Rfam assigns this 79-nucleotide RNA from Hermetia illucens to the family "drz-agam-1 ribozyme". A reference for the family is Webb et al. (2009), "Widespread occurrence of self-cleaving ribozymes", Science.
RNA sequence: UACUACCAAACCCUAUCUCAACCUUCACGUGGUGGUCGCUGAGAGUUUCUUCAUAAUGAAAAACUGCAGACGGAGAAGG
Dot-bracket structure: ...........(((.(.((.(((.......)))..........(((((.(.(.....)).)))))......)).).)))

Source information:
A search with the family's covariance model found it, with a score of 38 bits. Pairs were carried over by alignment from the consensus structure, which is taken from published work. Taxonomically the source falls in Hermetia (Eukaryota, Mandibulata, Eumetabola, Panorpida). Its family is annotated with catalytic activity in the Gene Ontology.